[Rfam]
RNA: nhaA-I RNA
Nucleotides: 052
Stems, first nucleotide, its partner, number of pairs: 005022007033052007
Number, partner (000 for none) and nucleotide at each position: 001000g002000g003000g004000u005022g006021c007020g008019g009018u010017g011016c012000c013000u014000c015000u016011g017010c018009a019008c020007c021006g022005c023000a024000g025000g026000u027000c028000u029000c030000c031000c032000c033052g034051g035050u036049u037048g038047g039046u040000c041000g042000g043000g044000c045000c046039g047038c048037c049036a050035g051034c052033c